[Rfam]
RNA sequence: UGAGUAAAUCAGACGGUCGCGAGUACAGUACCGAAAGGUCGUACUUGAGGAAAGUCCGAGCUCCAUAGGGCAGGGUGCUGGGUAAUACCCAGUGGAGGCGACUCUAAGGAAAGUGCAACAGAAAUAAACCGCCAGUUUUACUGGUAAGGAUGGAAAGGUGAGGUAAGAGCUCACCGCUCCUUAGGUGACUAAGGAGGCUCUGUAAACCCCACCCGGAGCAAAACCGUAUAGGGGAACAUAUGCGGUGGCCCGCCGUGUUCCCGGGUAGGUUGCUUGAGCGUAUAGGCAACUAUACGUCGAGAUAGAUGACCGUUUAAUACAGAACUCGGCUUAUAGAUUUGCUCACUUA
Numbered sequence: 001u002g003a004g005u006a007a008a009u010c011a012g013a014c015g016g017u018c019g020c021g022a023g024u025a026c027a028g029u030a031c032c033g034a035a036a037g038g039u040c041g042u043a044c045u046u047g048a049g050g051a052a053a054g055u056c057c058g059a060g061c062u063c064c065a066u067a068g069g070g071c072a073g074g075g076u077g078c079u080g081g082g083u084a085a086u087a088c089c090c091a092g093u094g095g096a097g098g099c100g101a102c103u104c105u106a107a108g109g110a111a112a113g114u115g116c117a118a119c120a121g122a123a124a125u126a127a128a129c130c131g132c133c134a135g136u137u138u139u140a141c142u143g144g145u146a147a148g149g150a151u152g153g154a155a156a157g158g159u160g161a162g163g164u165a166a167g168a169g170c171u172c173a174c175c176g177c178u179c180c181u182u183a184g185g186u187g188a189c190u191a192a193g194g195a196g197g198c199u200c201u202g203u204a205a206a207c208c209c210c211a212c213c214c215g216g217a218g219c220a221a222a223a224c225c226g227u228a229u230a231g232g233g234g235a236a237c238a239u240a241u242g243c244g245g246u247g248g249c250c251c252g253c254c255g256u257g258u259u260c261c262c263g264g265g266u267a268g269g270u271u272g273c274u275u276g277a278g279c280g281u282a283u284a285g286g287c288a289a290c291u292a293u294a295c296g297u298c299g300a301g302a303u304a305g306a307u308g309a310c311c312g313u314u315u316a317a318u319a320c321a322g323a324a325c326u327c328g329g330c331u332u333a334u335a336g337a338u339u340u341g342c343u344c345a346c347u348u349a
Stems, first nucleotide, its partner, number of pairs: 001345010011334001012314007020047007028039001052332003056329005061218004068251004073214005078092005093107001094105004108209002113207002115203003129149002131145006157175006176198001177196008222271004232262006242256005278297008
Dot-bracket structure: ((((((((((((((((((.(((((((.(..........).)))))))....[[[.[[[[[((((...[[[[.((((((((((.....)))))(((((....)))).)((...(((((...........((((((((...))))))..)).......((((((.......))))))(((((((((....)))))))).)..)))..)))))))))))))...((((......((((((....(((((.]]]]))))))))))).....))))......((((((((....))))))))..........)))))))..........]]]]]]]].).))))))))))....